RNA sequence: AGCCUAUGAUGCUUUGAGCAUAAGAGUAGUGGACAGAAGUGAUUUCUGACAACUCUGCCCUGAGGCU
Numbered sequence: 001a002g003c004c005u006a007u008g009a010u011g012c013u014u015u016g017a018g019c020a021u022a023a024g025a026g027u028a029g030u031g032g033a034c035a036g037a038a039g040u041g042a043u044u045u046c047u048g049a050c051a052a053c054u055c056u057g058c059c060c061u062g063a064g065g066c067u
Base pairs, nucleotide, nucleotide: 001067002066003065004064
This 67-nucleotide sequence from Alligator mississippiensis belongs to the Rfam family "Small nucleolar RNA SNORD75". The organism belongs to Alligator, within Eukaryota. The literature on the family includes a 2002 paper in Mol Cell Biol by Galardi et al., "Purified box C/D snoRNPs are able to reproduce site-specific 2'-O-methylation of target RNA in vitro". Pairs were carried over by alignment from the consensus structure, which was predicted with RNAalifold. Rfam links the family to the GO terms nucleolus and RNA processing. The family's RNA type in Rfam is C/D-box small nucleolar RNA.